[Rfam]
RNA: Microsporidia small subunit ribosomal RNA, nucleotides 429 to 754
Organism: Vittaforma corneae
RNA sequence: CAGUUAAAAAGUCCGUAGUCAUAGAAGGGCAAAGAGAGAUGCGAGGUCUCACAGUGCGAUGAUGGAGGAGCCGAUGGGGAACAUAGUAUACCAGGGCGAGAGAUGAAAUGCCAAGACCCCUGGUGGACUGAGCGAGGCGAAGGCGAUGUUCUUGUAGGCAUUCGGUGAUCAAGGACGAAGGCUGGAGUAUCGAAAGUGAUUAGAUACCGCAGUAGUUCCAGCAGUAAAAGAUGCCGACAUGCUCAUUGGACACAGUGGGCAGGGAGAAAUCUUAAGAGUUCGGGCUCUGGGGAUAGUAUGCUCGCAAGGGUGAAAAUUAAAGAAAU
Number, nucleotide and partner (000 for none) at each position: 001c289002a288003g287004u000005u000006a000007a000008a000009a000010a000011g176012u175013c174014c173015g000016u000017a000018g169019u168020c167021a000022u000023a000024g000025a000026a000027g000028g000029g000030c000031a000032a000033a000034g000035a000036g000037a000038g000039a000040u000041g000042c000043g000044a000045g000046g000047u000048c000049u000050c000051a000052c000053a000054g000055u000056g000057c000058g000059a000060u000061g000062a000063u000064g000065g000066a000067g163068g162069a161070g159071c158072c157073g000074a155075u154076g000077g000078g152079g151080a150081a149082c148083a147084u146085a129086g128087u000088a000089u125090a124091c123092c122093a121094g120095g119096g118097c000098g000099a000100g111101a000102g109103a000104u000105g000106a000107a000108a000109u102110g000111c100112c000113a000114a000115g000116a000117c000118c096119c095120c094121u093122g092123g091124u090125g089126g000127a000128c086129u085130g000131a000132g000133c000134g000135a000136g000137g144138c143139g000140a000141a000142g000143g138144c137145g000146a084147u083148g082149u081150u080151c079152u078153u000154g075155u074156a000157g072158g071159c070160a000161u069162u068163c067164g000165g000166u000167g020168a019169u018170c000171a000172a000173g014174g013175a012176c011177g000178a000179a000180g000181g222182c221183u220184g219185g218186a217187g000188u000189a000190u000191c215192g000193a000194a000195a000196g210197u209198g208199a000200u000201u000202a000203g000204a000205u000206a000207c000208c198209g197210c196211a000212g000213u000214a000215g191216u000217u186218c185219c184220a183221g182222c181223a000224g000225u000226a000227a000228a000229a000230g000231a000232u000233g285234c284235c283236g000237a000238c276239a000240u261241g260242c259243u258244c257245a256246u255247u254248g253249g000250a000251c000252a000253c248254a247255g246256u245257g244258g243259g242260c241261a240262g000263g000264g271265a270266g000267a000268a000269a000270u265271c264272u000273u000274a000275a000276g238277a000278g000279u000280u000281c000282g000283g235284g234285c233286u000287c003288u002289g001290g000291g318292g317293a000294u000295a000296g000297u000298a000299u000300g311301c310302u309303c308304g000305c000306a000307a000308g303309g302310g301311u300312g000313a000314a000315a000316a000317u292318u291319a000320a000321a000322g000323a000324a000325a000326u000